[Rfam]
RNA sequence: UAAUGUUACAGCUCGUUUAGAAUUUGUCUAGCAGGCUUUCUGGUUUUUGCAGGAAAGUCCCC
Numbered sequence: 001u002a003a004u005g006u007u008a009c010a011g012c013u014c015g016u017u018u019a020g021a022a023u024u025u026g027u028c029u030a031g032c033a034g035g036c037u038u039u040c041u042g043g044u045u046u047u048u049g050c051a052g053g054a055a056a057g058u059c060c061c062c
Base pairs, nucleotide, nucleotide: 034059035058036057037056038055039054040053041052043050044049
RNA: U7 small nuclear RNA